[Rfam]
Shown here is a 211-nucleotide sequence from Clostridium collagenovorans, a member of the family "6S / SsrS RNA".
The organism belongs to Clostridium collagenovorans, within Bacteria.
The match comes from Rfam's covariance-model search (54 bits).
It is annotated as a non-coding RNA gene.
RNA sequence: AUUUUCCUGAGGUGUGCGUAACGCUUAUAAUGUUCAACCGACAGAUGUUAUACGGGAUCUUUUAAACUUUUUCAAUUAUGUCAGGCUUCCGGUAAGGUGAAACUCCUUAUUAAUCCUUUAGGAUUCUGAAGUAGACAGACUUGAAAUGCGAAGAACCCACCUGCUUAGUGGCGGGUAUGAACAUAUAAGUUAACGGCAUUUUGGGUGUAAU
Numbered sequence: 001a002u003u004u005u006c007c008u009g010a011g012g013u014g015u016g017c018g019u020a021a022c023g024c025u026u027a028u029a030a031u032g033u034u035c036a037a038c039c040g041a042c043a044g045a046u047g048u049u050a051u052a053c054g055g056g057a058u059c060u061u062u063u064a065a066a067c068u069u070u071u072u073c074a075a076u077u078a079u080g081u082c083a084g085g086c087u088u089c090c091g092g093u094a095a096g097g098u099g100a101a102a103c104u105c106c107u108u109a110u111u112a113a114u115c116c117u118u119u120a121g122g123a124u125u126c127u128g129a130a131g132u133a134g135a136c137a138g139a140c141u142u143g144a145a146a147u148g149c150g151a152a153g154a155a156c157c158c159a160c161c162u163g164c165u166u167a168g169u170g171g172c173g174g175g176u177a178u179g180a181a182c183a184u185a186u187a188a189g190u191u192a193a194c195g196g197c198a199u200u201u202u203g204g205g206u207g208u209a210a211u
Stems, first nucleotide, its partner, number of pairs: 002209001004207001006205010017195003031183006037176003054158003058154005070146006081135002086131004